[Rfam]
RNA sequence: UCUGAAAAAAGGCAAACUCAUAGCGAUAUGAGGACGCAAAACCGAGAAUCUCAGGGGAGAUGGUCCGGUUGCCAAA
Numbered sequence: 001u002c003u004g005a006a007a008a009a010a011g012g013c014a015a016a017c018u019c020a021u022a023g024c025g026a027u028a029u030g031a032g033g034a035c036g037c038a039a040a041a042c043c044g045a046g047a048a049u050c051u052c053a054g055g056g057g058a059g060a061u062g063g064u065c066c067g068g069u070u071g072c073c074a075a076a
Stems, first nucleotide, its partner, number of pairs: 012037002017032006040070004046065002048061005